A member of the RNA family "M-box riboswitch aptamer (ykoK leader)" from Halanaerobium hydrogeniformans, 169 nucleotides long. The organism belongs to Halanaerobium, within Bacteria. About the family: M-box riboswitch, also know as ykoK leader is described as a metaloregulatory RNA that sense divalent metals and function as a genetic control element of genes related to divalent metal transport in bacteria. It was first reported upstream of the B.subtilis ykoK gene and genes with related functions in other bacteria. The base pairs follow the family's consensus structure.
[Rfam]
Nucleotides: 169
Stems, first nucleotide, its partner, number of pairs: 005165006011156002013096001015151003020145003025141008039113005045074005054065004081104004087099003115129003
Number, partner (000 for none) and nucleotide at each position: 001000a002000a003000u004000a005165u006164u007163a008162c009161u010160u011156g012155u013096u014000a015151g016150g017149u018000g019000a020145g021144g022143c023000u024000c025141c026140u027139a028138u029137a030136u031135g032134a033000a034000u035000a036000u037000a038000g039113g040112c041111u042110g043109c044000u045074g046073c047072c048071c049070a050000a051000a052000a053000a054065c055064g056063u057062c058000c059000a060000g061000a062057g063056a064055c065054g066000c067000c068000a069000a070049u071048g072047g073046g074045u075000a076000u077000a078000a079000c080000a081104g082103g083102u084101a085000c086000g087099g088098u089097c090000g091000g092000a093000a094000u095000a096013a097089g098088g099087c100000c101084u102083a103082c104081c105000c106000a107000a108000u109043g110042c111041a112040g113039c114000u115129g116128a117127u118000u119000g120000a121000u122000u123000u124000u125000u126000a127117a128116u129115c130000u131000a132000c133000g134032u135031c136030a137029u138028a139027u140026a141025g142000u143022g144021c145020u146000a147000a148000a149017g150016c151015c152000a153000g154000g155012a156011u157000g158000a159000g160010g161009a162008g163007u164006a165005a166000a167000a168000u169000u

It scores 156 bits against the family's covariance model.